[Rfam]
RNA sequence: GGAUUGUUCUUAAUUAAUGCGGACAAUAAAAGUAGUAGCGAACCUAUUACUAGUUCACGACUUAAUGUCGAGAGCAAAACUCUUAAAUUGCAGGAAUAUCCUAAAAUUCAAAGUAUCAAAUAUAAAUAGUAACAUUUAUUUGGAACAGGUAAUGACUCGUUGUAAGAUAAUAACUUUUGAAAUAAUAAUGGACAAUCUGCAGCCAAGUACCUGAAGGGUAUGCUGUUCAUUGACUAAAUAAGAGUUGGUCUAUCGCGCUGCGAUGGGCUUAAGAUAUAGUCAAUUAUCAGUGAAAAUUGAUA
Numbered sequence: 001g002g003a004u005u006g007u008u009c010u011u012a013a014u015u016a017a018u019g020c021g022g023a024c025a026a027u028a029a030a031a032g033u034a035g036u037a038g039c040g041a042a043c044c045u046a047u048u049a050c051u052a053g054u055u056c057a058c059g060a061c062u063u064a065a066u067g068u069c070g071a072g073a074g075c076a077a078a079a080c081u082c083u084u085a086a087a088u089u090g091c092a093g094g095a096a097u098a099u100c101c102u103a104a105a106a107u108u109c110a111a112a113g114u115a116u117c118a119a120a121u122a123u124a125a126a127u128a129g130u131a132a133c134a135u136u137u138a139u140u141u142g143g144a145a146c147a148g149g150u151a152a153u154g155a156c157u158c159g160u161u162g163u164a165a166g167a168u169a170a171u172a173a174c175u176u177u178u179g180a181a182a183u184a185a186u187a188a189u190g191g192a193c194a195a196u197c198u199g200c201a202g203c204c205a206a207g208u209a210c211c212u213g214a215a216g217g218g219u220a221u222g223c224u225g226u227u228c229a230u231u232g233a234c235u236a237a238a239u240a241a242g243a244g245u246u247g248g249u250c251u252a253u254c255g256c257g258c259u260g261c262g263a264u265g266g267g268c269u270u271a272a273g274a275u276a277u278a279g280u281c282a283a284u285u286a287u288c289a290g291u292g293a294a295a296a297u298u299g300a301u302a
Base pairs, nucleotide, nucleotide: 005025006024007023008022009021011019012018030048031047078246079245080244081243082242084240085239089201090200091199092198093197094196099192100191101190202226203225207221208220209219210218211217212216230282232281233280234279235278236277248268249267250266251265252264253263254262255261256260287300288299289298290297291296